[Rfam]
RNA sequence: CUCCAGGGUGACCGUGGCUUUAGAUUGUUACUGUGGGGAUGUGGUCUGGGUAACAGUCUACAGCCAUGGUUGCCCCGAGUGG
Numbered sequence: 001c002u003c004c005a006g007g008g009u010g011a012c013c014g015u016g017g018c019u020u021u022a023g024a025u026u027g028u029u030a031c032u033g034u035g036g037g038g039a040u041g042u043g044g045u046c047u048g049g050g051u052a053a054c055a056g057u058c059u060a061c062a063g064c065c066a067u068g069g070u071u072g073c074c075c076c077g078a079g080u081g082g
Stems, first nucleotide, its partner, number of pairs: 012069002015066004023058010
Rfam assigns this 82-nucleotide RNA from Phrynocephalus forsythii to the family "mir-132 microRNA precursor family". It scores 80 bits against the family's covariance model. The organism belongs to Phrynocephalus, within Eukaryota. Gene Ontology terms of the family: miRNA-mediated post-transcriptional gene silencing and RISC complex. The literature on the family includes a 2005 paper in Genes Dev by Chen et al., "The developmental miRNA profiles of zebrafish as determined by small RNA cloning". Pairs were carried over by alignment from the consensus structure, which was predicted with RNAalifold.